[Rfam]
RNA: Small nucleolar RNA SNORA65
Organism: Colius striatus
RNA sequence: CCCGCCACUGUACCUGUCAGUCACACAGGGGCUGGUACAAUCCAGAGGUGAGCUGACAGAAAUGCCAGCCCAGGAAACAGAGUUACUCUUUGUGUGGGUACCUCUGUGCCGAAGGCUGGGAACAGGG
Numbered sequence: 001c002c003c004g005c006c007a008c009u010g011u012a013c014c015u016g017u018c019a020g021u022c023a024c025a026c027a028g029g030g031g032c033u034g035g036u037a038c039a040a041u042c043c044a045g046a047g048g049u050g051a052g053c054u055g056a057c058a059g060a061a062a063u064g065c066c067a068g069c070c071c072a073g074g075a076a077a078c079a080g081a082g083u084u085a086c087u088c089u090u091u092g093u094g095u096g097g098g099u100a101c102c103u104c105u106g107u108g109c110c111g112a113a114g115g116c117u118g119g120g121a122a123c124a125g126g127g
Stems, first nucleotide, its partner, number of pairs: 005048002008045003018035001019033002021030002065119006073110002078106005086098003